Shown here is a 98-nucleotide sequence from Paraburkholderia eburnea, a member of the family "Glycine riboswitch aptamer". The match comes from Rfam's covariance-model search (57 bits). Rfam's curators write: This family represents the bacterial glycine riboswitch.
[Rfam]
RNA sequence: UCAACUGCAGCGGGAGAGACCGUCACUGCGAAAGCACUCGACGGCGCCGACGGAGCAACCGCCCCGGAAACUCUCAGGCACAAGGACCCUGCGGCGAG
Numbered sequence: 001u002c003a004a005c006u007g008c009a010g011c012g013g014g015a016g017a018g019a020c021c022g023u024c025a026c027u028g029c030g031a032a033a034g035c036a037c038u039c040g041a042c043g044g045c046g047c048c049g050a051c052g053g054a055g056c057a058a059c060c061g062c063c064c065c066g067g068a069a070a071c072u073c074u075c076a077g078g079c080a081c082a083a084g085g086a087c088c089c090u091g092c093g094g095c096g097a098g
Base pairs, nucleotide, nucleotide: 006093007092008091009090010089012088013087020044021043022042023041046079047078048077049075050074053073054072055071059067060066